RNA sequence: GGCGGGAGGGCGGUGAAUAGAAUACCCUUCGGGGGAAUAAGCCCGCCUGACUUUGUACAGGUUUCUAACCUCCCGCUCACCAGCG
Numbered sequence: 001g002g003c004g005g006g007a008g009g010g011c012g013g014u015g016a017a018u019a020g021a022a023u024a025c026c027c028u029u030c031g032g033g034g035g036a037a038u039a040a041g042c043c044c045g046c047c048u049g050a051c052u053u054u055g056u057a058c059a060g061g062u063u064u065c066u067a068a069c070c071u072c073c074c075g076c077u078c079a080c081c082a083g084c085g
Base pairs, nucleotide, nucleotide: 001077002076003075004074005073006072007071008070009069012043013042014041016038025034026033027032045062046061047060048059049058
Background:
Shown here is an 85-nucleotide sequence from Cohaesibacter sp. ES.047, a member of the family "sRNA-Xcc1". The family's consensus secondary structure was predicted with RNAalifold. A search with the family's covariance model found it, with a score of 63 bits.